[Rfam]
A member of the RNA family "small nucleolar RNA snoR137" from Cuscuta australis, 146 nucleotides long. The match comes from Rfam's covariance-model search (64 bits). For this family Rfam cites "Mining small RNA sequencing data: a new approach to identify small nucleolar RNAs in Arabidopsis" (Chen and Wu, Nucleic Acids Res, 2009).

RNA sequence: AUUUCUUGAUCUGUGAACUCCCCAGAAGCUUAAAUCAGUUGGGCGUGUUCUUGUACCCAGAAGCAUAUAUAAAUUUAACUUUCAGAAUUAAACAGCACGGCGAUUUCAUUUAACUCGCUUGGUGUUACCUGUCUCCUGAAACAUUU
Dot-bracket structure: .((((.........(((((.(((.................))).).)))).........)))).................(((((.(......(((.(.(.(...............).).).))).......).)))))......